The record is a 77-nucleotide sequence from Candidatus Thioglobus autotrophicus, which matches "SAH (S-adenosyl-L-homocysteine) riboswitch aptamer" in Rfam. For this family Rfam cites "Riboswitches that sense S-adenosylhomocysteine and activate genes involved in coenzyme recycling" (Wang et al., Mol Cell, 2008). The match comes from Rfam's covariance-model search (43 bits).

RNA sequence: ACCGCCAAGGAGCGUUGCGUUGAAUUUUUUUCAAUCAGGCUUGGCAAUCAGAAUCACUAGAACGACGCUCAUUUUUU
Numbered sequence: 001a002c003c004g005c006c007a008a009g010g011a012g013c014g015u016u017g018c019g020u021u022g023a024a025u026u027u028u029u030u031u032c033a034a035u036c037a038g039g040c041u042u043g044g045c046a047a048u049c050a051g052a053a054u055c056a057c058u059a060g061a062a063c064g065a066c067g068c069u070c071a072u073u074u075u076u077u
Base pairs, nucleotide, nucleotide: 004045005044006043007042008041020034021033022032023031024030